A member of the RNA family "Small nucleolar RNA R64/Z200 family" from Amborella trichopoda, 92 nucleotides long. The family's consensus secondary structure was predicted with PFOLD. A reference for the family is Galardi et al. (2002), "Purified box C/D snoRNPs are able to reproduce site-specific 2'-O-methylation of target RNA in vitro", Mol Cell Biol.
RNA sequence: UUUCUGCUAUGAUGAGUAUGGGUUUUAAUUCGCAUGUUAGACUUUAGAGAUGUAUUCAUCAAUGAGAAUAAAAACUCAAUUCUGAGCAGAUU
Numbered sequence: 001u002u003u004c005u006g007c008u009a010u011g012a013u014g015a016g017u018a019u020g021g022g023u024u025u026u027a028a029u030u031c032g033c034a035u036g037u038u039a040g041a042c043u044u045u046a047g048a049g050a051u052g053u054a055u056u057c058a059u060c061a062a063u064g065a066g067a068a069u070a071a072a073a074a075c076u077c078a079a080u081u082c083u084g085a086g087c088a089g090a091u092u
Base pairs, nucleotide, nucleotide: 003090004089005088006087007086049060050059051058052057